[Rfam]
RNA: Molybdenum/Tungsten riboswitch aptamer (Moco RNA motif)
RNA sequence: AUAAUAGGUCUUUUCCGUGUUCUGACAGCUAAAAGGAUAACUCAUGCUGUCAGAACCUGAGUCUGAACUUUACGGGCUCACGGGGUUAUGAUUGGAAACGGUCUAACCUUCACUUUUGAGAAGGAAAAGCUGCGGCAGAAGA
Numbered sequence: 001a002u003a004a005u006a007g008g009u010c011u012u013u014u015c016c017g018u019g020u021u022c023u024g025a026c027a028g029c030u031a032a033a034a035g036g037a038u039a040a041c042u043c044a045u046g047c048u049g050u051c052a053g054a055a056c057c058u059g060a061g062u063c064u065g066a067a068c069u070u071u072a073c074g075g076g077c078u079c080a081c082g083g084g085g086u087u088a089u090g091a092u093u094g095g096a097a098a099c100g101g102u103c104u105a106a107c108c109u110u111c112a113c114u115u116u117u118g119a120g121a122a123g124g125a126a127a128a129g130c131u132g133c134g135g136c137a138g139a140a141g142a
Base pairs, nucleotide, nucleotide: 011128012127013126014125015124016123019056020055021054022053023052024051025050026049027048028047029046034042035041058080059079060078061077062076063075064074065073083109084108085107086106087105088104090103091102092101093100094099110119111118